[Rfam]
RNA sequence: CGCCCCGUCAUUGGGGAGUAGCCGCCCGGACCGGCCGCCUACAGCGGGCCGUGGUACCGGGGUACGCGUCAACACACUUGGUCAUCCGACCAUGGCGCGGACAGCCGCCCGGCCUGGCAAGACCUUUGACCACGCACCUCCGGAAGGGCCGGGGGAGAGGCGUGGUCAUGGGAUCGCCCCGGCCCGGA
Number, nucleotide and partner (000 for none) at each position: 001c000002g000003c000004c000005c000006c000007g000008u000009c000010a000011u000012u000013g000014g000015g000016g000017a000018g000019u000020a000021g000022c000023c000024g000025c000026c060027c059028g058029g000030a000031c000032c000033g000034g000035c000036c000037g000038c000039c000040u000041a000042c000043a000044g000045c000046g000047g000048g000049c000050c000051g000052u000053g000054g000055u000056a000057c000058c028059g027060g026061g000062g102063u101064a000065c099066g098067c097068g096069u095070c094071a093072a000073c000074a000075c000076a000077c000078u000079u092080g091081g090082u089083c088084a000085u000086c000087c000088g083089a082090c081091c080092a079093u071094g070095g069096c068097g067098c066099g065100g000101a063102c062103a000104g000105c000106c000107g000108c187109c186110c000111g000112g000113c000114c000115u000116g000117g000118c000119a000120a000121g000122a000123c000124c000125u000126u000127u000128g000129a000130c000131c000132a000133c000134g000135c000136a000137c000138c000139u000140c000141c000142g000143g000144a000145a000146g000147g000148g000149c000150c000151g000152g000153g000154g000155g000156a000157g000158a000159g000160g000161c000162g000163u000164g000165g000166u000167c000168a000169u000170g000171g000172g000173a000174u000175c000176g000177c000178c000179c000180c000181g000182g000183c000184c000185c000186g109187g108188a000
Shown here is a 188-nucleotide RNA sequence from Azospira inquinata, a member of the family "Manganese Mn2+ riboswitch aptamer (yybP-ykoY)". NCBI's taxonomy places the organism under Bacteria, Pseudomonadati, Pseudomonadota, Betaproteobacteria, Azospira. Pairs were carried over by alignment from the consensus structure. Rfam describes the family as follows. This RNA was originally discovered in E. coli during a large scale screen and was named SraF. The family was later found to exist upstream of related families of protein genes in many bacteria, including the the yybP and ykoK genes in B. subtilis.